[Rfam]
RNA sequence: AGCAAAUGGUGGCGCACUUCCUGAUUACGGGCGGUGUAAUACAGUUUGCUUCUGGCAAAACAGAUACCACAGCCCGCACUAAGCGGGUUUUUUUUU
Numbered sequence: 001a002g003c004a005a006a007u008g009g010u011g012g013c014g015c016a017c018u019u020c021c022u023g024a025u026u027a028c029g030g031g032c033g034g035u036g037u038a039a040u041a042c043a044g045u046u047u048g049c050u051u052c053u054g055g056c057a058a059a060a061c062a063g064a065u066a067c068c069a070c071a072g073c074c075c076g077c078a079c080u081a082a083g084c085g086g087g088u089u090u091u092u093u094u095u096u
Base pairs, nucleotide, nucleotide: 009042010041011040014037015036016035017034018033020031021030022029023028071089072088073087074086075085076084077083